[Rfam]
RNA sequence: GGAUUUAUGAUGAGCUAUGUUUACUGAGCAUGAUGAAGUGAAGCUCAAUAUGAUUACUCUGAGGUCC
Numbered sequence: 001g002g003a004u005u006u007a008u009g010a011u012g013a014g015c016u017a018u019g020u021u022u023a024c025u026g027a028g029c030a031u032g033a034u035g036a037a038g039u040g041a042a043g044c045u046c047a048a049u050a051u052g053a054u055u056a057c058u059c060u061g062a063g064g065u066c067c
Base pairs, nucleotide, nucleotide: 001067002066003065004064005063012059013058014057020053021052025047026046027045028044029043

A member of the RNA family "Small Nucleolar RNA SNORD64" from Ictidomys tridecemlineatus, 67 nucleotides long.
The family is grouped with related families in Rfam's "SNORD74 clan".
Pairs were carried over by alignment from the consensus structure, which was predicted with RNAalifold.
Taxonomically the source falls in Ictidomys (Eukaryota, Bilateria, Eutheria, Euarchontoglires).
The family has 17 seed sequences and 130 matches in Rfam 15.1.
It is one of the family's seed sequences.
For this family Rfam cites "The IC-SNURF-SNRPN transcript serves as a host for multiple small nucleolar RNA species and as an antisense RNA for UBE3A" (Runte et al., Hum Mol Genet, 2001).
The human snoRNA HBII-13 belongs to the C/D family of snoRNAs. It is expressed mainly in the brain, but is also in the lungs, the kidneys and muscle. HBII-13 snoRNA has no identified RNA target and is encoded together with HBII-436, HBII-437, HBII-438A/B and the clusters of HBII-85, HBII-52 snoRNA in a 460 kb intron of the large, paternally expressed, transcription unit (SNURF-SNRNP-UBE3A AS). This is antisense to maternally expressed UBE3A gene (Runt et al., 2001).